RNA sequence: AAGCCACACUGUGGCAGAUGCUGGUCACUGUCUGACACAAAUUGAGCUUGCUAUCACAAGAAAGUCUGACCUGUCUUAGUGUUCUCCUCCAUGAGACCAACUGUUACAUAGACUUCAACAAU
Numbered sequence: 001a002a003g004c005c006a007c008a009c010u011g012u013g014g015c016a017g018a019u020g021c022u023g024g025u026c027a028c029u030g031u032c033u034g035a036c037a038c039a040a041a042u043u044g045a046g047c048u049u050g051c052u053a054u055c056a057c058a059a060g061a062a063a064g065u066c067u068g069a070c071c072u073g074u075c076u077u078a079g080u081g082u083u084c085u086c087c088u089c090c091a092u093g094a095g096a097c098c099a100a101c102u103g104u105u106a107c108a109u110a111g112a113c114u115u116c117a118a119c120a121a122u
Stems, first nucleotide, its partner, number of pairs: 007046001009044001010039004015034006062115007072108003077103004083096004
Rfam assigns this 122-nucleotide RNA from Neogale vison to the family "Small nucleolar RNA SNORA28". About the family: ACA28 is a member of the H/ACA class of snoRNA that guide the sites of modification of uridines to pseudouridines. A search with the family's covariance model found it, with a score of 105 bits. Its Rfam clan is "SNORA28 clan". Pairs were carried over by alignment from the consensus structure, which was predicted with RNAfold. The family has 26 seed sequences and 922 matches in Rfam 15.1.